[Rfam]
RNA sequence: GGAUACUUGAGAGGAGUUGCCCCUAGUACGAGAGGACCGGGGUGAACGAUCCACUGGUGGACCUGUUGUGGCGCCAGCCGCAGUGCAGGGUAGCUAUGAUCGGACGGGAUAACCGCUGAAGGCAUCUAAGCGGGAAGCCCCCCUCGAAACAAGGUAUCCCUGAGGGCCGAGGUAGACCACCUCGUCGAUAGGCCGGAGGUGUAAGCGUGGCGACACGUUCAGCUGACCGGUACUAAUUGCCCGACAG
Numbered sequence: 001g002g003a004u005a006c007u008u009g010a011g012a013g014g015a016g017u018u019g020c021c022c023c024u025a026g027u028a029c030g031a032g033a034g035g036a037c038c039g040g041g042g043u044g045a046a047c048g049a050u051c052c053a054c055u056g057g058u059g060g061a062c063c064u065g066u067u068g069u070g071g072c073g074c075c076a077g078c079c080g081c082a083g084u085g086c087a088g089g090g091u092a093g094c095u096a097u098g099a100u101c102g103g104a105c106g107g108g109a110u111a112a113c114c115g116c117u118g119a120a121g122g123c124a125u126c127u128a129a130g131c132g133g134g135a136a137g138c139c140c141c142c143c144u145c146g147a148a149a150c151a152a153g154g155u156a157u158c159c160c161u162g163a164g165g166g167c168c169g170a171g172g173u174a175g176a177c178c179a180c181c182u183c184g185u186c187g188a189u190a191g192g193c194c195g196g197a198g199g200u201g202u203a204a205g206c207g208u209g210g211c212g213a214c215a216c217g218u219u220c221a222g223c224u225g226a227c228c229g230g231u232a233c234u235a236a237u238u239g240c241c242c243g244a245c246a247g
Base pairs, nucleotide, nucleotide: 001159002158003157004156005155006154007153008152011145012144013143014142017045018044019043020042021041022040023039047102048101049100050099051098055096056095057094062089063088064087065086066085067082068081069080070079071078072077106140107139108138113133114132115131116130117129164242165241166240167239168184169183170182171181172180189235190234191233192231193230194229195228196227198224199223205218206217207216208215209214
Overview: A member of the RNA family "Bacterial large subunit ribosomal RNA" from Rhodovulum sp. 12E13, 247 nucleotides of a longer RNA. The base pairs follow the family's consensus structure, which is taken from published work. Its Rfam clan is "LSU clan".